[Rfam]
RNA sequence: AUUUAGUUAUAUGACUGACGGAAUUUAUGUGGAAGAACCACGUGGAGUAUAACAUCAGGCAGUUUUUAACUGCUGGGAAAGGCAAUGUCUCUUCGGGACAUCGCGGCAACGAUUCAUAGAAACGUUGCAAUUGCCGACCGUCUGGGCAACCUGC
Numbered sequence: 001a002u003u004u005a006g007u008u009a010u011a012u013g014a015c016u017g018a019c020g021g022a023a024u025u026u027a028u029g030u031g032g033a034a035g036a037a038c039c040a041c042g043u044g045g046a047g048u049a050u051a052a053c054a055u056c057a058g059g060c061a062g063u064u065u066u067u068a069a070c071u072g073c074u075g076g077g078a079a080a081g082g083c084a085a086u087g088u089c090u091c092u093u094c095g096g097g098a099c100a101u102c103g104c105g106g107c108a109a110c111g112a113u114u115c116a117u118a119g120a121a122a123c124g125u126u127g128c129a130a131u132u133g134c135c136g137a138c139c140g141u142c143u144g145g146g147c148a149a150c151c152u153g154c
Base pairs, nucleotide, nucleotide: 006053007052008051009050010049011048012047015044017142018141019140020139021138029041030040031039032038131149132148133147134146135145
RNA: ZMP/ZTP riboswitch aptamer (pfl RNA motif)
Organism: Roseburia sp. CAG:197